RNA sequence: CAAUGUGGUAGUUUUCUUUCUGGCCCAUUUGUUAAGUAUCAAAUAGGCCUAACUCUACCACAUAAAUGACACUGGAGCAAGAAUCUUGGGGCUAUCGGACCUCAUUUGAGCCCUCCCCACUGAAGAGAUUAUUUUUGCUCCCACAUGC
Dot-bracket structure: ....(((((((..........(((..(((((........)))))..))).....)))))))............((((((((...)).................(.(........................).)..)))))).......
RNA: Small nucleolar RNA SNORA12